Description
This 47-nucleotide RNA sequence from Branchiostoma lanceolatum belongs to the Rfam family "Histone 3' UTR stem-loop". Its family is annotated with mRNA 3'-end processing by stem-loop binding and cleavage in the Gene Ontology. Pairs were carried over by alignment from the consensus structure, which is taken from published work. The organism belongs to Branchiostoma, within Eukaryota. For this family Rfam cites "Structure of histone mRNA stem-loop, human stem-loop binding protein, and 3'hExo ternary complex" (Tan et al., Science, 2013).
Nucleotides: 047
Base pairs, nucleotide, nucleotide: 006021007020008019009018010017011016
Number, partner (000 for none) and nucleotide at each position: 001000a002000c003000c004000c005000c006021g007020g008019c009018c010017c011016u012000u013000u014000u015000c016011a017010g018009g019008g020007c021006c022000a023000c024000c025000c026000a027000u028000a029000u030000c031000u032000u033000u034000c035000c036000a037000a038000a039000a040000a041000g042000u043000u044000c045000u046000g047000u